[Rfam]
RNA: FTHFS RNA
RNA sequence: AUCAGUACACAAGUACUGAUUACCCACUCGUGCGGCCAGCCAUUCCAACGGUCAGCCGCAUAAGUCCUGUAUGUGCCUGAGCCACUCCGACGGCAGGGCACCCACAUUAGAAAAUACAAGGAG
Numbered sequence: 001a002u003c004a005g006u007a008c009a010c011a012a013g014u015a016c017u018g019a020u021u022a023c024c025c026a027c028u029c030g031u032g033c034g035g036c037c038a039g040c041c042a043u044u045c046c047a048a049c050g051g052u053c054a055g056c057c058g059c060a061u062a063a064g065u066c067c068u069g070u071a072u073g074u075g076c077c078u079g080a081g082c083c084a085c086u087c088c089g090a091c092g093g094c095a096g097g098g099c100a101c102c103c104a105c106a107u108u109a110g111a112a113a114a115u116a117c118a119a120g121g122a123g
Stems, first nucleotide, its partner, number of pairs: 001020008030061007039052003073101004078096001